[Rfam]
RNA sequence: AGAGUUAAAGGCGUAUCUCUACUAUAUAACACAAAAAUGGAUAGUAGAGGUAUACCCAUUAGCUCUGA
Numbered sequence: 001a002g003a004g005u006u007a008a009a010g011g012c013g014u015a016u017c018u019c020u021a022c023u024a025u026a027u028a029a030c031a032c033a034a035a036a037a038u039g040g041a042u043a044g045u046a047g048a049g050g051u052a053u054a055c056c057c058a059u060u061a062g063c064u065c066u067g068a
Base pairs, nucleotide, nucleotide: 001066002065003064004063005062006061007060008059010057011056013053014052015051016050017049018048019047020046021045022044023043024042025041